Small nucleolar RNA SNORA49: a 134-nucleotide RNA sequence from Salvelinus namaycush. Rfam 15.1 lists 722 matches to the family in 550 species. The match comes from Rfam's covariance-model search (50 bits).

RNA sequence: CUUCCCCUCCCUUACUCCAGUCACUGCACCCAGUGGGGUGGAAUGGCAUUGACAGGGGCUACAGCACUGUGGCCCUCUCACCUCUCUCAUCUAGGACUAUUCUCCUAUAUGAGGCUUGUGAGAGAGCUGACAAU
Numbered sequence: 001c002u003u004c005c006c007c008u009c010c011c012u013u014a015c016u017c018c019a020g021u022c023a024c025u026g027c028a029c030c031c032a033g034u035g036g037g038g039u040g041g042a043a044u045g046g047c048a049u050u051g052a053c054a055g056g057g058g059c060u061a062c063a064g065c066a067c068u069g070u071g072g073c074c075c076u077c078u079c080a081c082c083u084c085u086c087u088c089a090u091c092u093a094g095g096a097c098u099a100u101u102c103u104c105c106u107a108u109a110u111g112a113g114g115c116u117u118g119u120g121a122g123a124g125a126g127c128u129g130a131c132a133a134u
Base pairs, nucleotide, nucleotide: 004058005057006056007055008054011051017046018045019044021042022041023039024038025037027035071128072127073126075124076123084113085112086111089108092107093106094105095104
The family's consensus secondary structure was predicted with RNAalifold. By type it is an H/ACA-box small nucleolar RNA. From the family's description: The snoRNA ACA49 has no identified RNA target. NB genomic sequence 1-nt different from published.